Annotation
Shown here is a 137-nucleotide sequence from Caenorhabditis japonica, a member of the family "Caenorhabditis snoRNA ceN80". The family's RNA type in Rfam is H/ACA-box small nucleolar RNA. On this family, see Jia et al., BMC Mol Biol 2007: "Systematic identification of non-coding RNA 2,2,7-trimethylguanosine cap structures in Caenorhabditis elegans". The family's consensus secondary structure was predicted with RNAalifold. Gene Ontology terms of the family: RNA processing and nucleolus.
RNA sequence: ACUCCAUGUUUACUACUACUUGAUCUCUGUUUUUGGAGAUUUUCGAGUAUUUUGCGAUACAUGGAAUAGAAAAUUGUGGCCAGGUUUCUUCAAAUGUCCCAAAUUUGGACUUGAAGUUACAAUGUCAUUGUACAAUA
Number, nucleotide and partner (000 for none) at each position: 001a000002c000003u000004c064005c063006a062007u061008g060009u059010u000011u000012a000013c000014u000015a000016c000017u049018a048019c047020u046021u045022g044023a000024u000025c000026u037027c036028u000029g000030u000031u000032u000033u000034u000035g000036g027037a026038g000039a000040u000041u000042u000043u000044c022045g021046a020047g019048u018049a017050u000051u000052u000053u000054g000055c000056g000057a000058u000059a009060c008061a007062u006063g005064g004065a000066a000067u000068a000069g000070a000071a000072a000073a000074u130075u000076g128077u127078g126079g125080c124081c000082a000083g000084g120085u119086u000087u000088c116089u115090u114091c113092a112093a111094a000095u109096g000097u000098c000099c000100c000101a000102a000103a000104u000105u000106u000107g000108g000109a095110c000111u093112u092113g091114a090115a089116g088117u000118u000119a085120c084121a000122a000123u000124g080125u079126c078127a077128u076129u000130g074131u000132a000133c000134a000135a000136u000137a000